[Rfam]
Rfam assigns this 122-nucleotide sequence from Ictidomys tridecemlineatus to the family "Small nucleolar RNA SNORA26". Its Rfam clan is "SNORA27 clan". A reference for the family is Huttenhofer et al. (2001), "RNomics: an experimental approach that identifies 201 candidates for novel, small, non-messenger RNAs in mouse", EMBO J. Lineage of the source: Eukaryota > Chordata > Teleostomi > Glires > Ictidomys. The sequence is in the family's curated seed alignment. Rfam's curators write: The snoRNA HBI-6 belong to the H/ACA family of snoRNAs, guiding the pseudouridylation of position U4522 if the 28S rRNA. HBI-6 is the human orthologue of mouse MBI-6 snoRNA.
Nucleotides: 122
Base pairs, nucleotide, nucleotide: 002051003050004049005048006047007046008045009044010043014040015039016038017037019035021032058116060114061113062112063111064110071101072100073099074098075097076096077095079093080092081091083090084089
Number, partner (000 for none) and nucleotide at each position: 001000g002051u003050g004049c005048c006047u007046u008045u009044u010043u011000a012000a013000g014040g015039u016038u017037g018000a019035c020000g021032c022000a023000g024000u025000g026000c027000u028000u029000u030000a031000a032021g033000a034000a035019g036000c037017u038016a039015a040014c041000a042000c043010a044009g045008a046007a047006g048005g049004g050003u051002a052000a053000a054000g055000c056000a057000a058116a059000c060114c061113u062112c063111c064110a065000u066000a067000g068000a069000a070000c071101c072100c073099a074098g075097a076096g077095a078000a079093g080092a081091g082000a083090u084089u085000g086000c087000a088000a089084a090083a091081c092080u093079c094000u095077u096076c097075u098074u099073u100072g101071g102000a103000u104000c105000c106000u107000g108000c109000c110064u111063g112062g113061a114060g115000u116058u117000a118000c119000c120000a121000a122000u